[Rfam]
Actinobacillus sRNA 14: a 160-nucleotide RNA from Muribacter muris. Lineage of the source: Bacteria > Pseudomonadati > Gammaproteobacteria > Pasteurellaceae > Muribacter. By type it is a small RNA.
RNA sequence: CAACGAAUAACAAUGCAAACAUAAACACACAACAAUGGUAAAACUCUUUUCUCUCCUAACCUUACGUCUGACACAGUUUCUGUGCGGGUAAAGCUCGGAUAGAAAAAAGUUCACUAUCCACUUUAGCUCGCACUUUUAAGGCGAGCUUUUUUUUCAUUCA
Numbered sequence: 001c002a003a004c005g006a007a008u009a010a011c012a013a014u015g016c017a018a019a020c021a022u023a024a025a026c027a028c029a030c031a032a033c034a035a036u037g038g039u040a041a042a043a044c045u046c047u048u049u050u051c052u053c054u055c056c057u058a059a060c061c062u063u064a065c066g067u068c069u070g071a072c073a074c075a076g077u078u079u080c081u082g083u084g085c086g087g088g089u090a091a092a093g094c095u096c097g098g099a100u101a102g103a104a105a106a107a108a109g110u111u112c113a114c115u116a117u118c119c120a121c122u123u124u125a126g127c128u129c130g131c132a133c134u135u136u137u138a139a140g141g142c143g144a145g146c147u148u149u150u151u152u153u154u155c156a157u158u159c160a
Base pairs, nucleotide, nucleotide: 013022014021015020036120037119038118042111043110044109045108047106048105050103051102054099055098056097058095061093062092068088069087072084073083074082075081076080126146127145128144129143130142131141